[Rfam]
RNA sequence: UCGCCAUGUCGCGACUGGCGUUCGGGUGGGUGACCACCGGGGAGCGACUGACUACGGCAUUCGACCGCUCGCCUGGGCCGAUGCG
Numbered sequence: 001u002c003g004c005c006a007u008g009u010c011g012c013g014a015c016u017g018g019c020g021u022u023c024g025g026g027u028g029g030g031u032g033a034c035c036a037c038c039g040g041g042g043a044g045c046g047a048c049u050g051a052c053u054a055c056g057g058c059a060u061u062c063g064a065c066c067g068c069u070c071g072c073c074u075g076g077g078c079c080g081a082u083g084c085g
Base pairs, nucleotide, nucleotide: 003052005050008048009047010046011045012044015041016040017073018072019071020070026037027036028035029034062080063079065077066076
RNA: ZMP/ZTP riboswitch aptamer (pfl RNA motif)
Organism: Microbacterium sp. C448